[Rfam]
RNA: Histone 3' UTR stem-loop
RNA sequence: AAAAUGGCUCUUUUAAGAGCCAAAAAUUUUAAAAAUUAGAAUUCA
Dot-bracket structure: .....((((((....))))))........................